Shown here is a 179-nucleotide RNA sequence from Mycolicibacterium cosmeticum, a member of the family "c-di-AMP riboswitch aptamer (ydaO/yuaA leader)". A search with the family's covariance model found it, with a score of 64 bits. For this family Rfam cites "New RNA motifs suggest an expanded scope for riboswitches in bacterial genetic control" (Barrick et al., Proc Natl Acad Sci U S A, 2004). Taxonomically the source falls in Mycobacterium (subgen. Mycolicibacterium) (Bacteria, Actinomycetota, Mycobacteriales, Mycobacterium).

RNA sequence: GCACUGCCACCGACGAACAACCUUGGAUGGAGGCGGGGGACCCACCGGUCCGCCGAAAGCAGACCAGGGCUCGCAGUCUGAGCCCUUGGGGUGAAGCCGGCGUCGGCGACGACGCAGGCCGGGCGACCUCUCCAGCCCGAACCCGACAGCUGACCUCGUAGGCGUUCACGAGAGGACUG
Numbered sequence: 001g002c003a004c005u006g007c008c009a010c011c012g013a014c015g016a017a018c019a020a021c022c023u024u025g026g027a028u029g030g031a032g033g034c035g036g037g038g039g040a041c042c043c044a045c046c047g048g049u050c051c052g053c054c055g056a057a058a059g060c061a062g063a064c065c066a067g068g069g070c071u072c073g074c075a076g077u078c079u080g081a082g083c084c085c086u087u088g089g090g091g092u093g094a095a096g097c098c099g100g101c102g103u104c105g106g107c108g109a110c111g112a113c114g115c116a117g118g119c120c121g122g123g124c125g126a127c128c129u130c131u132c133c134a135g136c137c138c139g140a141a142c143c144c145g146a147c148a149g150c151u152g153a154c155c156u157c158g159u160a161g162g163c164g165u166u167c168a169c170g171a172g173a174g175g176a177c178u179g
Base pairs, nucleotide, nucleotide: 004032005031033159034158035157036156037155038154043088044087089144090143091142097118098117100115101114102113103112104111105110121138122137123136124135